[Rfam]
RNA sequence: GAAGUUUUCCUCGAUAGUUAACUGCAACCGAUUUCAUAAUUCGACAGUUAACUGCCGAGGAACAU
Numbered sequence: 001g002a003a004g005u006u007u008u009c010c011u012c013g014a015u016a017g018u019u020a021a022c023u024g025c026a027a028c029c030g031a032u033u034u035c036a037u038a039a040u041u042c043g044a045c046a047g048u049u050a051a052c053u054g055c056c057g058a059g060g061a062a063c064a065u
Stems, first nucleotide, its partner, number of pairs: 008061002011058003015054010
RNA: MIR2629 microRNA precursor family